The family of this 135-nucleotide RNA from Citrobacter freundii is "Enterobacteria sRNA STnc130". The match comes from Rfam's covariance-model search (122 bits).

RNA sequence: AAUAGUGAAUUUGCGUAAAGACAGAGAUAAAUACUGACUUUCAUUCGAAGGUAGUAUUACCACUAAUGGGGUAAGGGUUAUUGUUCAACGUCAAGCAGGCAUAAAAAAAGCGCCCGCAGGCGCUUUUUUAGCAGG
Numbered sequence: 001a002a003u004a005g006u007g008a009a010u011u012u013g014c015g016u017a018a019a020g021a022c023a024g025a026g027a028u029a030a031a032u033a034c035u036g037a038c039u040u041u042c043a044u045u046c047g048a049a050g051g052u053a054g055u056a057u058u059a060c061c062a063c064u065a066a067u068g069g070g071g072u073a074a075g076g077g078u079u080a081u082u083g084u085u086c087a088a089c090g091u092c093a094a095g096c097a098g099g100c101a102u103a104a105a106a107a108a109a110g111c112g113c114c115c116g117c118a119g120g121c122g123c124u125u126u127u128u129u130a131g132c133a134g135g
Base pairs, nucleotide, nucleotide: 061070107126108125109124110123111122112121113120114119
The base pairs follow the family's consensus structure, which was predicted with WAR. Rfam classes the family as a small RNA. The organism belongs to Citrobacter freundii complex, within Bacteria.